[Rfam]
RNA sequence: UCUUCAUUUCUCUUGCUCUCUCACCGGACAGAGAGGCGAGAGAGUGUGUGAAAUGAGGAUG
Numbered sequence: 001u002c003u004u005c006a007u008u009u010c011u012c013u014u015g016c017u018c019u020c021u022c023a024c025c026g027g028a029c030a031g032a033g034a035g036g037c038g039a040g041a042g043a044g045u046g047u048g049u050g051a052a053a054u055g056a057g058g059a060u061g
Stems, first nucleotide, its partner, number of pairs: 001059007010050001012048001014046004019041004